Background
The record is a 111-nucleotide sequence, which matches "TPP riboswitch aptamer (THI element)" in Rfam. The match comes from Rfam's covariance-model search (69 bits).
RNA sequence: GAAUAGUACUAGGGGUGCCGUAAAUGUUCGGCUGAGAUUAAGACACUAUAGUCUUUGACCCUUUAACCUGAUCUGGAUAAUGCCAGCGUAGGAAAGUGAACGGUAGAAUAC
Numbered sequence: 001g002a003a004u005a006g007u008a009c010u011a012g013g014g015g016u017g018c019c020g021u022a023a024a025u026g027u028u029c030g031g032c033u034g035a036g037a038u039u040a041a042g043a044c045a046c047u048a049u050a051g052u053c054u055u056u057g058a059c060c061c062u063u064u065a066a067c068c069u070g071a072u073c074u075g076g077a078u079a080a081u082g083c084c085a086g087c088g089u090a091g092g093a094a095a096g097u098g099a100a101c102g103g104u105a106g107a108a109u110a111c
Stems, first nucleotide, its partner, number of pairs: 007098004011062004017032004040055004067092004073086004